[Rfam]
RNA sequence: AAGGCCCUCAAAUGGGAGGCACUCUCUGUUUUUCAAAAGGAAGAAAGUGCUCCCCAUUUGAGGGUCAC
Numbered sequence: 001a002a003g004g005c006c007c008u009c010a011a012a013u014g015g016g017a018g019g020c021a022c023u024c025u026c027u028g029u030u031u032u033u034c035a036a037a038a039g040g041a042a043g044a045a046a047g048u049g050c051u052c053c054c055c056a057u058u059u060g061a062g063g064g065u066c067a068c
Stems, first nucleotide, its partner, number of pairs: 004065013018051006025044003
Record summary
The family of this 68-nucleotide RNA sequence from Jaculus jaculus is "mir-290 microRNA precursor family". The family is grouped with related families in Rfam's "mir-290 clan". The literature on the family includes a 2004 paper in Dev Biol by Suh et al., "Human embryonic stem cells express a unique set of microRNAs". Gene Ontology terms of the family: miRNA-mediated post-transcriptional gene silencing and RISC complex. The organism belongs to Jaculus, within Eukaryota.